[Rfam]
RNA sequence: GUUCAACUUUGCGCAGGCGGAACUCGACCGCCCACUGAAGCGAUGAUCGCUUUUAUUGAAGAUCAGCGCAUUGUUUAUGGCGUCGAGUCGAUCUGUAGGGUUCUGCCGAUCGCGCCG
Numbered sequence: 001g002u003u004c005a006a007c008u009u010u011g012c013g014c015a016g017g018c019g020g021a022a023c024u025c026g027a028c029c030g031c032c033c034a035c036u037g038a039a040g041c042g043a044u045g046a047u048c049g050c051u052u053u054u055a056u057u058g059a060a061g062a063u064c065a066g067c068g069c070a071u072u073g074u075u076u077a078u079g080g081c082g083u084c085g086a087g088u089c090g091a092u093c094u095g096u097a098g099g100g101u102u103c104u105g106c107c108g109a110u111c112g113c114g115c116c117g
Stems, first nucleotide, its partner, number of pairs: 016032005078117005089112002092109002095106004